This 363-nucleotide RNA sequence from Suicoccus acidiformans belongs to the Rfam family "Bacterial RNase P class B".
A search with the family's covariance model found it, with a score of 317 bits.
The organism belongs to Suicoccus, within Bacteria.
It is annotated as a ribozyme.
RNA sequence: AACUUCAGGUAAUCGCGGCUGGUUACCAGCUGAGGAAAGUCCAUGCUCGCACAGGCUGAGAUGCCUGUAGUGUUCGUGCUUAGCGAAACAAUAAGCUAAGGUAAUAGCAAUAUUAACGGCGAAGAAACGGCCUACGGUUGAACUAUGGCCAAGUACUUCUUAAAGUGCCACAGAGACGAUACUUUGAGGAAACUCAAAGUGUGGAACGUUGGUAAACCCCUCGAGCGAGCAACCCAAACUUUGGUCGGGGCACCUUUCCUAUGGAAUUCAACAGAUGGAAGAGGACACAUAGUGUAGAUAGAUGGUUACCCAUGCGGAUAUUUGACCUAUAAGUAACCGCAUGACAGAACAUGGCUUAUCGAA
Numbered sequence: 001a002a003c004u005u006c007a008g009g010u011a012a013u014c015g016c017g018g019c020u021g022g023u024u025a026c027c028a029g030c031u032g033a034g035g036a037a038a039g040u041c042c043a044u045g046c047u048c049g050c051a052c053a054g055g056c057u058g059a060g061a062u063g064c065c066u067g068u069a070g071u072g073u074u075c076g077u078g079c080u081u082a083g084c085g086a087a088a089c090a091a092u093a094a095g096c097u098a099a100g101g102u103a104a105u106a107g108c109a110a111u112a113u114u115a116a117c118g119g120c121g122a123a124g125a126a127a128c129g130g131c132c133u134a135c136g137g138u139u140g141a142a143c144u145a146u147g148g149c150c151a152a153g154u155a156c157u158u159c160u161u162a163a164a165g166u167g168c169c170a171c172a173g174a175g176a177c178g179a180u181a182c183u184u185u186g187a188g189g190a191a192a193c194u195c196a197a198a199g200u201g202u203g204g205a206a207c208g209u210u211g212g213u214a215a216a217c218c219c220c221u222c223g224a225g226c227g228a229g230c231a232a233c234c235c236a237a238a239c240u241u242u243g244g245u246c247g248g249g250g251c252a253c254c255u256u257u258c259c260u261a262u263g264g265a266a267u268u269c270a271a272c273a274g275a276u277g278g279a280a281g282a283g284g285a286c287a288c289a290u291a292g293u294g295u296a297g298a299u300a301g302a303u304g305g306u307u308a309c310c311c312a313u314g315c316g317g318a319u320a321u322u323u324g325a326c327c328u329a330u331a332a333g334u335a336a337c338c339g340c341a342u343g344a345c346a347g348a349a350c351a352u353g354g355c356u357u358a359u360c361g362a363a
Base pairs, nucleotide, nucleotide: 004363005362006361007359008310009309010308011307012306013305014304016032017031018030019029020028021027037357038356039355041354042353043352044351045350046229047228048227049226050225051068052067053066054065055064056063074224075223076222078220079100080099081098082097083096084095101117102115103114104113105112106111118219119218121159122158123157124156129150130149131148132147136144137143138142165217166216167213168212169211181200182199183198184197185196186195187194188193233249234248235247253284254283255282256280257279258278259277285295286294287293288292312342313341314340315339316338317337319335320334321333322332323331324330

Description: Rfam's curators write: Ribonuclease P (RNase P) is a ubiquitous endoribonuclease, found in archaea, bacteria and eukarya as well as chloroplasts and mitochondria. Its best characterised activity is the generation of mature 5'-ends of tRNAs by cleaving the 5'-leader elements of precursor-tRNAs. Cellular RNase Ps are ribonucleoproteins. RNA from bacterial RNase Ps retains its catalytic activity in the absence of the protein subunit, i.e. it is a ribozyme.